[Rfam]
A member of the RNA family "Eukaryotic large subunit ribosomal RNA" from Colletotrichum gloeosporioides, 415 nucleotides of a longer RNA. The source organism's lineage runs through Eukaryota, Opisthokonta, Pezizomycotina, sordariomyceta and Colletotrichum gloeosporioides species complex. Rfam 15.1 lists 107,465 matches to the family in 2,616 species. A search with the family's covariance model found it, with a score of 2085 bits. The family's consensus secondary structure is taken from published work.
RNA sequence: UAACCUUAGAUUAAGUAGGAAUACCUACUAAACUUAAGCAUAUUAAUAAGCAGAGGAAAAGAAACUAAUAGGGAUUACUUCAGUAACAAUAAGUAAAGCAGCAACAGCUUAAAUUUAAAAUCUAGCCUUAGGCUUAAGUUAUAAUUUGCAGAGGAUGCUUUUAGUAUAAUGCCUUCUAAGUUCCCUAGAAUAGGACGCUAGAGAGGGUGAGAGCCUUAUAUAGUUAGACACUAAGCCUUUAUAAAGCUCUUUUAAUAAGUUAAGUAGUUUAAGAAUACUACUCAAAAUAAGAGGUAUAUUUCUUCUAAAGCUAAAUACCAGCUAGAGACUAAUAGCAUAUAAGUAGAGUGAUCAAAAGAUAAAAAGCACUUUAAAAAGAGGGUUAAAUAGUAUAUAAAAUUAUUAAAAGGGAAGC
Numbered sequence: 001u002a003a004c005c006u007u008a009g010a011u012u013a014a015g016u017a018g019g020a021a022u023a024c025c026u027a028c029u030a031a032a033c034u035u036a037a038g039c040a041u042a043u044u045a046a047u048a049a050g051c052a053g054a055g056g057a058a059a060a061g062a063a064a065c066u067a068a069u070a071g072g073g074a075u076u077a078c079u080u081c082a083g084u085a086a087c088a089a090u091a092a093g094u095a096a097a098g099c100a101g102c103a104a105c106a107g108c109u110u111a112a113a114u115u116u117a118a119a120a121u122c123u124a125g126c127c128u129u130a131g132g133c134u135u136a137a138g139u140u141a142u143a144a145u146u147u148g149c150a151g152a153g154g155a156u157g158c159u160u161u162u163a164g165u166a167u168a169a170u171g172c173c174u175u176c177u178a179a180g181u182u183c184c185c186u187a188g189a190a191u192a193g194g195a196c197g198c199u200a201g202a203g204a205g206g207g208u209g210a211g212a213g214c215c216u217u218a219u220a221u222a223g224u225u226a227g228a229c230a231c232u233a234a235g236c237c238u239u240u241a242u243a244a245a246g247c248u249c250u251u252u253u254a255a256u257a258a259g260u261u262a263a264g265u266a267g268u269u270u271a272a273g274a275a276u277a278c279u280a281c282u283c284a285a286a287a288u289a290a291g292a293g294g295u296a297u298a299u300u301u302c303u304u305c306u307a308a309a310g311c312u313a314a315a316u317a318c319c320a321g322c323u324a325g326a327g328a329c330u331a332a333u334a335g336c337a338u339a340u341a342a343g344u345a346g347a348g349u350g351a352u353c354a355a356a357a358g359a360u361a362a363a364a365a366g367c368a369c370u371u372u373a374a375a376a377a378g379a380g381g382g383u384u385a386a387a388u389a390g391u392a393u394a395u396a397a398a399a400u401u402a403u404u405a406a407a408a409g410g411g412a413a414g415c
Base pairs, nucleotide, nucleotide: 024055025053026052028050029049035042036041065072066071076103078101079100086094087093106312107311108310109309112146113145114144115143118140119139121137124134125133126132127131151253152252153250154249155248158246159245160244161243164236165235167233168232172227176223177222180196182195183194184193199203206216207215263282264281265280266279267278268277289306291304292303293302346353347352369380370379371378372377